[Rfam]
RNA sequence: GGAACGGGCCUUUCAGGCAUCCUCUCCUAAAACUUCAAAGCUGCCCUUCCGGGUGGCUUUUUUUUUGCUUUUUU
Numbered sequence: 001g002g003a004a005c006g007g008g009c010c011u012u013u014c015a016g017g018c019a020u021c022c023u024c025u026c027c028u029a030a031a032a033c034u035u036c037a038a039a040g041c042u043g044c045c046c047u048u049c050c051g052g053g054u055g056g057c058u059u060u061u062u063u064u065u066u067g068c069u070u071u072u073u074u
Base pairs, nucleotide, nucleotide: 008018009017010016011015038059039058040057041056042055043054044053045052046051

Background:
Rfam assigns this 74-nucleotide RNA sequence from Sphingobium sp. C100 to the family "Makes More Granules Regulator RNA (mmgR)". The family has 87 seed sequences and 1,791 matches in Rfam 15.1. The literature on the family includes a 2010 paper in BMC Genomics by Schluter et al., "A genome-wide survey of sRNAs in the symbiotic nitrogen-fixing alpha-proteobacterium Sinorhizobium meliloti". Rfam classes the family as a small RNA. The source organism's lineage runs through Bacteria, Pseudomonadota, Sphingomonadales, Sphingobiaceae and Sphingobium.